The family of this 94-nucleotide RNA from Zea mays is "mir-172 microRNA precursor family". NCBI's taxonomy places the organism under Eukaryota, Poaceae, Panicoideae, Tripsacinae, Zea. Rfam describes the family as follows. mir-172 has been experimentally verified in Arabidopsis thaliana. This family is thought to target mRNAs coding for APETALA2-like transcription factors.
RNA sequence: GUGUUUGCUGAUGCAGCAUCAUCAAGAUUCUCAUCUCAUCAUGCACAGAUCGAGCUGGGGAUGUGAAUCUUGAUGGUGCUGCACCUGCAAGCAC
Numbered sequence: 001g002u003g004u005u006u007g008c009u010g011a012u013g014c015a016g017c018a019u020c021a022u023c024a025a026g027a028u029u030c031u032c033a034u035c036u037c038a039u040c041a042u043g044c045a046c047a048g049a050u051c052g053a054g055c056u057g058g059g060g061a062u063g064u065g066a067a068u069c070u071u072g073a074u075g076g077u078g079c080u081g082c083a084c085c086u087g088c089a090a091g092c093a094c
Base pairs, nucleotide, nucleotide: 010085012083013082014081015080016079017078018077019076020075021074022073023072024071025070026069027068028067029066030065032063033062034061035060036059037058
Dot-bracket structure: .........(.(((((((((((((((((((.((((((....................)))))).))))))))))))))))))).).........